[Rfam]
RNA sequence: UGAGCUAGCUCUUAAUCUUGUUGCAAUAGAGAGAAGCUUAAAGUCAAGAUCA
Numbered sequence: 001u002g003a004g005c006u007a008g009c010u011c012u013u014a015a016u017c018u019u020g021u022u023g024c025a026a027u028a029g030a031g032a033g034a035a036g037c038u039u040a041a042a043g044u045c046a047a048g049a050u051c052a
Stems, first nucleotide, its partner, number of pairs: 002038001009033002012031001013028002016049005

Rfam assigns this 52-nucleotide RNA sequence from Polerovirus CLDV to the family "Exoribonuclease-resistant RNA (xrRNA) plant-infecting virus (class 3)".
Lineage of the source: Viruses > Riboviria > Pisuviricota > Solemoviridae > Cotton leafroll dwarf virus.
The literature on the family includes a 2018 paper in mBio by Steckelberg et al., "Exoribonuclease-Resistant RNAs Exist within both Coding and Noncoding Subgenomic RNAs".
Rfam describes the family as follows. Exoribonuclease-resistant RNA (xrRNA) plant-infecting virus (class 3) is a ncRNA that was reported in Plant viruses.
The sequence is in the family's curated seed alignment.
The base pairs follow the family's consensus structure, which is taken from published work.
Rfam links the family to the GO term viral RNA genome replication.